Record summary: The record is a 73-nucleotide RNA sequence from Paramagnetospirillum magneticum, which matches "tRNA" in Rfam. It is annotated as a transfer RNA.
RNA sequence: GGGCCUGUAGCUCAAUGGUUAGAGCCGGCCGCUCAUAACGGUCUGGUUGCAGGUUCGAGUCCUGCCGGGCCCA
Numbered sequence: 001g002g003g004c005c006u007g008u009a010g011c012u013c014a015a016u017g018g019u020u021a022g023a024g025c026c027g028g029c030c031g032c033u034c035a036u037a038a039c040g041g042u043c044u045g046g047u048u049g050c051a052g053g054u055u056c057g058a059g060u061c062c063u064g065c066c067g068g069g070c071c072c073a
Stems, first nucleotide, its partner, number of pairs: 001072007010025004027043005049065005
Dot-bracket structure: (((((((..((((........)))).(((((.......))))).....(((((.......)))))))))))).